[Rfam]
RNA sequence: UCCCUAGGAAGAGUUCCUGCCGUGUCUUAGAGCCUGCCUGGCCACCAGAGCCUGUGAAGGUUGAACCCACUGGUGGCCAGCAGAGCGAAAGGAGGAGCCUCCAUUCCAGAAGGAACCGUCUGAUGGGAU
Numbered sequence: 001u002c003c004c005u006a007g008g009a010a011g012a013g014u015u016c017c018u019g020c021c022g023u024g025u026c027u028u029a030g031a032g033c034c035u036g037c038c039u040g041g042c043c044a045c046c047a048g049a050g051c052c053u054g055u056g057a058a059g060g061u062u063g064a065a066c067c068c069a070c071u072g073g074u075g076g077c078c079a080g081c082a083g084a085g086c087g088a089a090a091g092g093a094g095g096a097g098c099c100u101c102c103a104u105u106c107c108a109g110a111a112g113g114a115a116c117c118g119u120c121u122g123a124u125g126g127g128a129u
Base pairs, nucleotide, nucleotide: 001128002127003126004125
Small nucleolar RNA SNORD22: a 129-nucleotide RNA from Varanus komodoensis. Rfam links the family to the GO terms nucleolus and RNA processing. The literature on the family includes a 1996 paper in Nature by Tycowski et al., "A mammalian gene with introns instead of exons generating stable RNA products". Rfam 15.1 lists 1,081 matches to the family in 414 species. It is annotated as a C/D-box small nucleolar RNA.